Rfam assigns this 110-nucleotide sequence from Clostridium butyricum to the family "SAM riboswitch aptamer (S box leader)". Rfam links the family to the GO term regulation of gene expression. Clan: SAM clan.
[Rfam]
RNA sequence: UUUUUAUCAAGAAAGACAGAGGGACUGGCCCUAUGAAGUCUAGCAACCUGAAUUAUUAAUUAAUUUAAGGUGCUAAUUCCAGCAGAUAUUUUAUAUCUGAAAGAUAAGAA
Numbered sequence: 001u002u003u004u005u006a007u008c009a010a011g012a013a014a015g016a017c018a019g020a021g022g023g024a025c026u027g028g029c030c031c032u033a034u035g036a037a038g039u040c041u042a043g044c045a046a047c048c049u050g051a052a053u054u055a056u057u058a059a060u061u062a063a064u065u066u067a068a069g070g071u072g073c074u075a076a077u078u079c080c081a082g083c084a085g086a087u088a089u090u091u092u093a094u095a096u097c098u099g100a101a102a103g104a105u106a107a108g109a110a
Stems, first nucleotide, its partner, number of pairs: 001110008013041001015040003021031003025082004042074004047070002050065002078102001083099006